Notes:
A member of the RNA family "MIR8008 microRNA precursor family" from Solanum tuberosum, 55 nucleotides long.

RNA sequence: AAAACCAGAAAAGCGACGGACAGAGUCCUUUAGUUCGUCGCUUUUCUGGAUUUUU
Numbered sequence: 001a002a003a004a005c006c007a008g009a010a011a012a013g014c015g016a017c018g019g020a021c022a023g024a025g026u027c028c029u030u031u032a033g034u035u036c037g038u039c040g041c042u043u044u045u046c047u048g049g050a051u052u053u054u055u
Base pairs, nucleotide, nucleotide: 001053002052003051005049006048007047008046009045010044011043012042013041014040015039016038017037018036019035020034021033
Taxonomically the source falls in Solanum (Eukaryota, Viridiplantae, Solanoideae, Solaneae). Rfam links the family to the GO terms miRNA-mediated post-transcriptional gene silencing and RISC complex. The base pairs follow the family's consensus structure, which was predicted with RNAalifold.